[Rfam]
RNA sequence: GGCAGUAACAGCGAAAGGGGGUGAGAAUCCCCCUCGCCGGAAGGGCCAGGUUUUCCCGGCAACGGUCGUCGACCGGGAGUGAGCCGGUCCUAAGGCAACGCCCAAUUGGCAGUUGCCGAAAGGGAAAGGGGUUAAUAUUCCCCUGCCACGGAGGUAGGUGCGGCAACGCAAGCUGUGCUCCUGACGGAUGGGGGUAGGGAAACCGAGGUAACCGCCUCGGCCAAGUACUGAAGCCCCUGGAGUACCGUAAUGGUGAGAAGGGGGCGAAGGUGCGAUGGGCCUCCCGUAUGGGGGGUUCUCCCGAACCCCGGUCCCCAUGAAAAGGGAGUGCAGAUCGAUCCUCCGUGCCCGUACCAAGAACCGACACUGGUGCCCCUGGGUGAGAAGCCCAAGGCGUAU
Numbered sequence: 001g002g003c004a005g006u007a008a009c010a011g012c013g014a015a016a017g018g019g020g021g022u023g024a025g026a027a028u029c030c031c032c033c034u035c036g037c038c039g040g041a042a043g044g045g046c047c048a049g050g051u052u053u054u055c056c057c058g059g060c061a062a063c064g065g066u067c068g069u070c071g072a073c074c075g076g077g078a079g080u081g082a083g084c085c086g087g088u089c090c091u092a093a094g095g096c097a098a099c100g101c102c103c104a105a106u107u108g109g110c111a112g113u114u115g116c117c118g119a120a121a122g123g124g125a126a127a128g129g130g131g132u133u134a135a136u137a138u139u140c141c142c143c144u145g146c147c148a149c150g151g152a153g154g155u156a157g158g159u160g161c162g163g164c165a166a167c168g169c170a171a172g173c174u175g176u177g178c179u180c181c182u183g184a185c186g187g188a189u190g191g192g193g194g195u196a197g198g199g200a201a202a203c204c205g206a207g208g209u210a211a212c213c214g215c216c217u218c219g220g221c222c223a224a225g226u227a228c229u230g231a232a233g234c235c236c237c238u239g240g241a242g243u244a245c246c247g248u249a250a251u252g253g254u255g256a257g258a259a260g261g262g263g264g265c266g267a268a269g270g271u272g273c274g275a276u277g278g279g280c281c282u283c284c285c286g287u288a289u290g291g292g293g294g295g296u297u298c299u300c301c302c303g304a305a306c307c308c309c310g311g312u313c314c315c316c317a318u319g320a321a322a323a324g325g326g327a328g329u330g331c332a333g334a335u336c337g338a339u340c341c342u343c344c345g346u347g348c349c350c351g352u353a354c355c356a357a358g359a360a361c362c363g364a365c366a367c368u369g370g371u372g373c374c375c376c377u378g379g380g381u382g383a384g385a386a387g388c389c390c391a392a393g394g395c396g397u398a399u
Base pairs, nucleotide, nucleotide: 016034017033018032019031020030021029035396036395037394038393043375044374045373046372049355050354054078055077056076057075058074059073063071064070085351086350087349089123090122094117095116096115097114098113099112100110101109102108127144128143129142130141131140147347148346149345150344151343152342153341154340180326181325182324186314187313188312189311191309192308193307194306197302198301199300200299203220204219205218206217207216225273226272227271228270234264235263236262237261238260244254245253246252285290361370362369377391378390379389380388
RNA: Archaeal large subunit ribosomal RNA, nucleotides 1402 to 1800